The family of this 79-nucleotide sequence from Salipiger marinus is "L2-Alphaproteobacteria ribosomal protein leader". For this family Rfam cites "Discovery of 20 novel ribosomal leader candidates in bacteria and archaea" (Eckert and Weinberg, BMC Microbiol, 2020). The family's RNA type in Rfam is cis-regulatory leader.
RNA sequence: GGCCACCUGCGGACGCAAGUCGAGGGGGCUCACACAUAGGGCGGAGCAAUCCGCCCCUCUGCAAAACGGAAGACAGAAG
Number, nucleotide and partner (000 for none) at each position: 001g030002g029003c028004c027005a000006c026007c025008u024009g000010c000011g000012g000013a000014c000015g000016c000017a000018a000019g000020u000021c000022g000023a000024g008025g007026g006027g004028g003029c002030u001031c000032a000033c000034a000035c000036a000037u000038a000039g056040g055041g054042c053043g052044g051045a050046g000047c000048a000049a000050u045051c044052c043053g042054c041055c040056c039057c000058u000059c000060u000061g000062c000063a000064a000065a000066a000067c000068g000069g000070a000071a000072g000073a000074c000075a000076g000077a000078a000079g000